[Rfam]
RNA sequence: AAAGGGUCAUACGACUGGCGGUAUUAUAUGGAAUUAACCAUAGGGGAGUAUGACCGAUACUGGAAUAGCCGACCGCCUGGGCAGAUAGA
Numbered sequence: 001a002a003a004g005g006g007u008c009a010u011a012c013g014a015c016u017g018g019c020g021g022u023a024u025u026a027u028a029u030g031g032a033a034u035u036a037a038c039c040a041u042a043g044g045g046g047a048g049u050a051u052g053a054c055c056g057a058u059a060c061u062g063g064a065a066u067a068g069c070c071g072a073c074c075g076c077c078u079g080g081g082c083a084g085a086u087a088g089a
Stems, first nucleotide, its partner, number of pairs: 005055008015045002017077005028041004066084001068082003

Shown here is an 89-nucleotide sequence from Halothermothrix orenii, a member of the family "ZMP/ZTP riboswitch aptamer (pfl RNA motif)". Lineage of the source: Bacteria > Clostridia > Halanaerobiales > Halothermotrichaceae > Halothermothrix orenii.